[Rfam]
RNA: Edr gene ribosomal frameshift signal
Organism: Otolemur garnettii
RNA sequence: GGGAGACUCCCCGGCCCUGCUGUAGAGGGACCUUCAGCGACUGAGCCAGAAAUAAUAAGGUCCCCA
Numbered sequence: 001g002g003g004a005g006a007c008u009c010c011c012c013g014g015c016c017c018u019g020c021u022g023u024a025g026a027g028g029g030a031c032c033u034u035c036a037g038c039g040a041c042u043g044a045g046c047c048a049g050a051a052a053u054a055a056u057a058a059g060g061u062c063c064c065c066a
Base pairs, nucleotide, nucleotide: 013047014046015045017043018039019038020037021036022035027064028063029062030061031060032059033058034057